[Rfam]
RNA sequence: UUCCGUUCCUAAGUACUAGUGCCGCAGGAGUGUGUUAAAGUAAUUUUCUCCUGCUGCUCAAGUGCUUAUCAAUGGGA
Numbered sequence: 001u002u003c004c005g006u007u008c009c010u011a012a013g014u015a016c017u018a019g020u021g022c023c024g025c026a027g028g029a030g031u032g033u034g035u036u037a038a039a040g041u042a043a044u045u046u047u048c049u050c051c052u053g054c055u056g057c058u059c060a061a062g063u064g065c066u067u068a069u070c071a072a073u074g075g076g077a
Base pairs, nucleotide, nucleotide: 001077002076003075004074005073006072007071010068011067012066013065014064015063016062017061019059024054025053026052027051028050029049030048
mir-252 microRNA precursor family: a 77-nucleotide RNA from Coptotermes formosanus.
Its Rfam clan is "mir-252 microRNA precursor family".
Taxonomically the source falls in Coptotermes (Eukaryota, Metazoa, Altocrustacea, Termitoidae).
On this family, see Li et al., BMC Genomics 2009: "Direct sequencing and expression analysis of a large number of miRNAs in Aedes aegypti and a multi-species survey of novel mosquito miRNAs".
It scores 81 bits against the family's covariance model.